[Rfam]
RNA sequence: UUCAUAAUCAAUAAAAGAUCCGUUUAGGUCCCUUAACUUUAUUUAAAGUAUCGGUUUGGUCCCUUUUGUUGAUUUAAUUCAAAAAAACGUUAAGUUUAGAACCAAGCUAAUACUAAUUAAAUAAGUUAAGGGAACAACUAAUACUAAUUAAAUCAGUUAAGGGACCAAAAUUUAACGUUUUUUUGAAUUAAAUUAACAUAAAUGACAAAUACUUUAUAUAAAGUUAAGGGAUCCAAACAUACCUUUUAUUAUUUAUGGGA
Numbered sequence: 001u002u003c004a005u006a007a008u009c010a011a012u013a014a015a016a017g018a019u020c021c022g023u024u025u026a027g028g029u030c031c032c033u034u035a036a037c038u039u040u041a042u043u044u045a046a047a048g049u050a051u052c053g054g055u056u057u058g059g060u061c062c063c064u065u066u067u068g069u070u071g072a073u074u075u076a077a078u079u080c081a082a083a084a085a086a087a088c089g090u091u092a093a094g095u096u097u098a099g100a101a102c103c104a105a106g107c108u109a110a111u112a113c114u115a116a117u118u119a120a121a122u123a124a125g126u127u128a129a130g131g132g133a134a135c136a137a138c139u140a141a142u143a144c145u146a147a148u149u150a151a152a153u154c155a156g157u158u159a160a161g162g163g164a165c166c167a168a169a170a171u172u173u174a175a176c177g178u179u180u181u182u183u184u185g186a187a188u189u190a191a192a193u194u195a196a197c198a199u200a201a202a203u204g205a206c207a208a209a210u211a212c213u214u215u216a217u218a219u220a221a222a223g224u225u226a227a228g229g230g231a232u233c234c235a236a237a238c239a240u241a242c243c244u245u246u247u248a249u250u251a252u253u254u255a256u257g258g259g260a
Stems, first nucleotide, its partner, number of pairs: 002258006023237003027233003031229012045215003
Rfam assigns this 260-nucleotide RNA from Medicago truncatula to the family "MIR2655 microRNA precursor family".
The sequence is in the family's curated seed alignment.
The organism belongs to Medicago, within Eukaryota.